[Rfam]
A member of the RNA family "Bacterial small subunit ribosomal RNA" from Caldichromatium japonicum, 355 nucleotides of a longer RNA.
Rfam links the family to the GO terms structural constituent of ribosome and ribosome.
Clan: SSU clan.
It scores 1539 bits against the family's covariance model.
The base pairs follow the family's consensus structure, which is taken from published work.
Lineage of the source: Bacteria > Pseudomonadati > Pseudomonadota > Chromatiales > Caldichromatium.
RNA sequence: GGCGUAAAGGGCGCGUAGGCGGUUGAUCAAGUCAGCUGUGAAAGCCCUGGGCUUAACCUGGGAACGGCAGUUGAGACUGGUGAACUAGAGUCGCGGAGAGGGGGGUGGAAUUCCCGGUGUAGCGGUGAAAUGCGUAGAGAUCGGGAGGAACACCGGUGGCGAAGGCGGCCCCCUGGCUGCAGACUGACGCUGAGGCGCGAAAGCGUGGGGAGCAAACAGGAUUAGAUACCCUGGUAGUCCACGCUGUAAACGAUGUCGACUAGCCGUACGCUUCUGUAUAGGGGUGUGUGGUGCAGCUAACGCGGUAAGUCGACCGCCUGGGGAGUACGGCCGCAAGGUUAAAACUCAAAGGAAU
Dot-bracket structure: (((.....(.((((.(.(((.(((.(((.((((((((((......((((((.....))))))....))))))))..))))).)))...(((.((((...((((((((...((((((((...(((......)))......))))))))...).......((....)).)))))))..))))..)))...))))..))))....((((((...((...((((.........))))...))))))))..........((((((..((((((((((((......))))))))))))...((....)).....)))))))))).(((......((((....))))....)))........